[Rfam]
RNA sequence: CCAGGUGUGCGACCACUUGUCACCUACUCGGACAUGCGUCUCCGGUAACGGAGGGGUAUGGAGCUCUGAGGAGAACGUUCACCGCGCGAGCGGCGCGUCUUCAUGUGAAUGGGGGGGCGGAGACUGCCAGCAGCGAGGCGGUUGAGGGG
Numbered sequence: 001c002c003a004g005g006u007g008u009g010c011g012a013c014c015a016c017u018u019g020u021c022a023c024c025u026a027c028u029c030g031g032a033c034a035u036g037c038g039u040c041u042c043c044g045g046u047a048a049c050g051g052a053g054g055g056g057u058a059u060g061g062a063g064c065u066c067u068g069a070g071g072a073g074a075a076c077g078u079u080c081a082c083c084g085c086g087c088g089a090g091c092g093g094c095g096c097g098u099c100u101u102c103a104u105g106u107g108a109a110u111g112g113g114g115g116g117g118c119g120g121a122g123a124c125u126g127c128c129a130g131c132a133g134c135g136a137g138g139c140g141g142u143u144g145a146g147g148g149g
Base pairs, nucleotide, nucleotide: 002019003018004017005016006015007014028069029068030067031066032065033060034059035058036057037056039054040053041052042051043050044049082095085092086091096119097118098117099116103110104109123142124141125140126139127138128137
RNA: Group II catalytic intron D1-D4-7